[Rfam]
RNA sequence: AACGACCGGCUGGACACUUGUGUGCCCGGCCCGCAAGUGGAGGCUCCGAACUCCCACCUGACCGCCCUCCGGGACGGCAGGUCACCCGGUCAGACGGCCACCACCGUUCCGUACGGACGGUGGAGCCGUCCGAUAUUGCGCCCCGCGGGACACCGCGGCGGUGCUCCGGCAGUACAUGGAGCCCCGCCUGUGUCCCGUCCGGGGCAUUUUUU
Numbered sequence: 001a002a003c004g005a006c007c008g009g010c011u012g013g014a015c016a017c018u019u020g021u022g023u024g025c026c027c028g029g030c031c032c033g034c035a036a037g038u039g040g041a042g043g044c045u046c047c048g049a050a051c052u053c054c055c056a057c058c059u060g061a062c063c064g065c066c067c068u069c070c071g072g073g074a075c076g077g078c079a080g081g082u083c084a085c086c087c088g089g090u091c092a093g094a095c096g097g098c099c100a101c102c103a104c105c106g107u108u109c110c111g112u113a114c115g116g117a118c119g120g121u122g123g124a125g126c127c128g129u130c131c132g133a134u135a136u137u138g139c140g141c142c143c144c145g146c147g148g149g150a151c152a153c154c155g156c157g158g159c160g161g162u163g164c165u166c167c168g169g170c171a172g173u174a175c176a177u178g179g180a181g182c183c184c185c186g187c188c189u190g191u192g193u194c195c196c197g198u199c200c201g202g203g204g205c206a207u208u209u210u211u212u
Stems, first nucleotide, its partner, number of pairs: 004091006012027002028083004034060002037057004041052002062077003065073003093130003097127001101123007140205006146197003157188005163182005